Rfam assigns this 99-nucleotide sequence from Trichoderma atroviride to the family "Small nucleolar RNA snR60/Z15/Z230/Z193/J17". Rfam classes the family as a C/D-box small nucleolar RNA. Lineage of the source: Eukaryota > Opisthokonta > Dikarya > saccharomyceta > Trichoderma atroviride. The literature on the family includes a 1999 paper in Science by Lowe and Eddy, "A computational screen for methylation guide snoRNAs in yeast". The base pairs follow the family's consensus structure.

[Rfam]
RNA sequence: UCGGUAUUAUGAUGAUACCCAUUCCAAUGCAUAGUUCAUCUGAAUUCUCUGAUGAAAAACUUACCUUCAAUAUUCUUUCGCUCCCAUCUGAUAUACCAU
Numbered sequence: 001u002c003g004g005u006a007u008u009a010u011g012a013u014g015a016u017a018c019c020c021a022u023u024c025c026a027a028u029g030c031a032u033a034g035u036u037c038a039u040c041u042g043a044a045u046u047c048u049c050u051g052a053u054g055a056a057a058a059a060c061u062u063a064c065c066u067u068c069a070a071u072a073u074u075c076u077u078u079c080g081c082u083c084c085c086a087u088c089u090g091a092u093a094u095a096c097c098a099u
Stems, first nucleotide, its partner, number of pairs: 004096004